[Rfam]
RNA sequence: CGUCGCGGAACGCCGAGUCCUGCCCGCCGCGACCGGAGCCUCUACCUCACGGGCAGGAGCGGGGGACCCACAGUUCCUCGGACGCACCGCGGUGCGUCCUCGGGGUGAAGCCGCUUCCGAGCGGCCGGGUCAACUUCCGACCCGAACCCGACAGCUCACCUCGUAGGCGUUGGAGGUCACGACG
Numbered sequence: 001c002g003u004c005g006c007g008g009a010a011c012g013c014c015g016a017g018u019c020c021u022g023c024c025c026g027c028c029g030c031g032a033c034c035g036g037a038g039c040c041u042c043u044a045c046c047u048c049a050c051g052g053g054c055a056g057g058a059g060c061g062g063g064g065g066a067c068c069c070a071c072a073g074u075u076c077c078u079c080g081g082a083c084g085c086a087c088c089g090c091g092g093u094g095c096g097u098c099c100u101c102g103g104g105g106u107g108a109a110g111c112c113g114c115u116u117c118c119g120a121g122c123g124g125c126c127g128g129g130u131c132a133a134c135u136u137c138c139g140a141c142c143c144g145a146a147c148c149c150g151a152c153a154g155c156u157c158a159c160c161u162c163g164u165a166g167g168c169g170u171u172g173g174a175g176g177u178c179a180c181g182a183c184g
Stems, first nucleotide, its partner, number of pairs: 011169004018058009059164006069102001103149003111124004127143004
RNA: c-di-AMP riboswitch aptamer (ydaO/yuaA leader)
Organism: Kineococcus xinjiangensis